RNA sequence: CGAUCGGGAGGCCCCUGGUGGGACAGGGGCCAGGAAUGGAUCGGUGAUCGCCGUCUCGUAUGGACGUGCCGCUGGGGCCCGACAGCCAGCGCG
Numbered sequence: 001c002g003a004u005c006g007g008g009a010g011g012c013c014c015c016u017g018g019u020g021g022g023a024c025a026g027g028g029g030c031c032a033g034g035a036a037u038g039g040a041u042c043g044g045u046g047a048u049c050g051c052c053g054u055c056u057c058g059u060a061u062g063g064a065c066g067u068g069c070c071g072c073u074g075g076g077g078c079c080c081g082a083c084a085g086c087c088a089g090c091g092c093g
Stems, first nucleotide, its partner, number of pairs: 001043005010031008065093005071086004
RNA: Rhodo-rpoB RNA
Organism: Salipiger mucosus